[Rfam]
RNA: Lysine riboswitch aptamer
Organism: Clostridium uliginosum
Nucleotides: 167
Stems, first nucleotide, its partner, number of pairs: 006162001008160004016080006023074003033065008084112010095101001113139002116136008141152004
Number, partner (000 for none) and nucleotide at each position: 001000a002000c003000c004000u005000a006162u007000g008160g009159u010158a011157g012000a013000g014000g015000a016080g017079c018078u019077a020076u021075u022000a023074a024073u025072a026000a027000a028000u029000a030000g031000u032000a033065c034064u035063u036062a037061u038060u039059a040058g041000g042000a043000g044000u045000u046000g047000g048000c049000a050000a051000a052000u053000g054000u055000u056000g057000a058040u059039u060038a061037a062036u063035a064034a065033g066000g067000a068000a069000a070000g071000g072025u073024a074023u075021g076020a077019u078018a079017g080016c081000c082000g083000a084112a085111g086110a087109a088108a089107u090106a091105g092104a093103u094000u095101a096000u097000g098000c099000a100000a101095u102000c103093a104092u105091u106090u107089a108088u109087u110086u111085c112084u113139g114138g115000g116136u117135a118134u119133a120132u121131g122130u123129a124000a125000a126000a127000u128000a129123u130122a131121u132120g133119u134118a135117u136116a137000a138114c139113u140000g141152u142151c143150a144149c145000g146000u147000a148000a149144g150143u151142g152141g153000a154000g155000a156000g157011c158010u159009a160008c161000a162006a163000g164000g165000a166000u167000u